[Rfam]
RNA sequence: AAGCAUCCUCUUAAACCCCCUGGUUUCCAUUUUUGGUCUCUGGGACUAGGAAAGGAUGCUAGAUUAAUUUUAGAAUUAUCCAAAACUGGGAGUUUAUUCAAUAACUCCUGGUUAUUUCACCUCUAAGACAAAU
Dot-bracket structure: ..((((..(((......(((.(((...........)))...)))....)))....))))...(((..(((((((.........(((((((.((..........)).)))))))........)))))))..)))
The family of this 133-nucleotide RNA sequence from Cynoglossus semilaevis is "Small nucleolar RNA SNORA14". Rfam 15.1 lists 848 matches to the family in 633 species. The base pairs follow the family's consensus structure, which was predicted with RNAfold. ACA14 is a member of the H/ACA class of snoRNA that guide the sites of modification of uridines to pseudouridines.